[Rfam]
This 151-nucleotide RNA sequence from Gellertiella hungarica belongs to the Rfam family "FMN riboswitch aptamer (RFN element)". Its family is annotated with FMN binding in the Gene Ontology.
RNA sequence: UCCUGUUCUCAGGGCGGGGUGAAAGUCCCCACCGGCGGUAAAGGGGGUAGCCCCAUAGCCCGCGAGCGCCUCUUCCCGAAUGGGGGGAGGGUCAGCAGAUCCGGUGCGAUUCCGGAGCCGACGGUGAAAGUCCGGAUGAAAGAGAACGGGA
Numbered sequence: 001u002c003c004u005g006u007u008c009u010c011a012g013g014g015c016g017g018g019g020u021g022a023a024a025g026u027c028c029c030c031a032c033c034g035g036c037g038g039u040a041a042a043g044g045g046g047g048u049a050g051c052c053c054c055a056u057a058g059c060c061c062g063c064g065a066g067c068g069c070c071u072c073u074u075c076c077c078g079a080a081u082g083g084g085g086g087g088a089g090g091g092u093c094a095g096c097a098g099a100u101c102c103g104g105u106g107c108g109a110u111u112c113c114g115g116a117g118c119c120g121a122c123g124g125u126g127a128a129a130g131u132c133c134g135g136a137u138g139a140a141a142g143a144g145a146a147c148g149g150g151a
Stems, first nucleotide, its partner, number of pairs: 003149008017029003031131002033120002035063004058118002066096002100116005122134003